[Rfam]
RNA sequence: UAACCCAUCGUACAACUGCUCCCAACCAAGACCUUUGUAGGCAGUAUAAUACUUCGUCUUUCAUAUCCAGUAGUGAGGGAUUACUGGGAAAUAAGUUUCGCA
Numbered sequence: 001u002a003a004c005c006c007a008u009c010g011u012a013c014a015a016c017u018g019c020u021c022c023c024a025a026c027c028a029a030g031a032c033c034u035u036u037g038u039a040g041g042c043a044g045u046a047u048a049a050u051a052c053u054u055c056g057u058c059u060u061u062c063a064u065a066u067c068c069a070g071u072a073g074u075g076a077g078g079g080a081u082u083a084c085u086g087g088g089a090a091a092u093a094a095g096u097u098u099c100g101c102a
Stems, first nucleotide, its partner, number of pairs: 016044005022037001028060005066088007
RNA: PhotoRC-II RNA